A member of the RNA family "A. fumigatus sRNA Afu_254" from Penicillium desertorum, 150 nucleotides long. The literature on the family includes a 2008 paper in Nucleic Acids Res by Jochl et al., "Small ncRNA transcriptome analysis from Aspergillus fumigatus suggests a novel mechanism for regulation of protein synthesis". Rfam classes the family as a small RNA. The organism belongs to Penicillium, within Eukaryota. The match comes from Rfam's covariance-model search (83 bits). The family's consensus secondary structure was predicted with WAR.
[Rfam]
RNA sequence: AUCCAAAGCAAACACUACUCUCAAGCUUCUUUUUCAAGGUUCUUUAACUACCACAUCCAUAUCCAUCAUGUCUCCCUGCACCUGCAACUGCUGCUCUGGCGAGUGCAACUCUUGCUCUUGCUCCAGCUGCAAGGUAUGUCAUUGCUUGCU
Numbered sequence: 001a002u003c004c005a006a007a008g009c010a011a012a013c014a015c016u017a018c019u020c021u022c023a024a025g026c027u028u029c030u031u032u033u034u035c036a037a038g039g040u041u042c043u044u045u046a047a048c049u050a051c052c053a054c055a056u057c058c059a060u061a062u063c064c065a066u067c068a069u070g071u072c073u074c075c076c077u078g079c080a081c082c083u084g085c086a087a088c089u090g091c092u093g094c095u096c097u098g099g100c101g102a103g104u105g106c107a108a109c110u111c112u113u114g115c116u117c118u119u120g121c122u123c124c125a126g127c128u129g130c131a132a133g134g135u136a137u138g139u140c141a142u143u144g145c146u147u148g149c150u
Stems, first nucleotide, its partner, number of pairs: 077101003084094003105130003114121002